[Rfam]
RNA sequence: AAAUGUUACUGCUAUUUUAGAAUUUGUCUAGCAGGUUUUCCGGUCUUCACCAGAAAACCCCU
Numbered sequence: 001a002a003a004u005g006u007u008a009c010u011g012c013u014a015u016u017u018u019a020g021a022a023u024u025u026g027u028c029u030a031g032c033a034g035g036u037u038u039u040c041c042g043g044u045c046u047u048c049a050c051c052a053g054a055a056a057a058c059c060c061c062u
Stems, first nucleotide, its partner, number of pairs: 034059007042051003
This 62-nucleotide RNA sequence from Pan troglodytes belongs to the Rfam family "U7 small nuclear RNA". Rfam's curators write: Animal histone pre-mRNAs are spliced by a different mechanism than nuclear pre-mRNAs and self-splicing introns. This processing involves the U7 snRNP, which contains only one RNA species: U7. The 5' end of U7 RNA is thought to base-pair to a conserved spacer element downstream of the cleavage site in histone pre-mRNA. This family contains a number of annotated U7 pseudogenes. On this family, see Spycher et al., Nucleic Acids Res 1994: "3' end processing of mouse histone pre-mRNA: evidence for additional base-pairing between U7 snRNA and pre-mRNA". The base pairs follow the family's consensus structure, which was predicted with PFOLD. A search with the family's covariance model found it, with a score of 68 bits.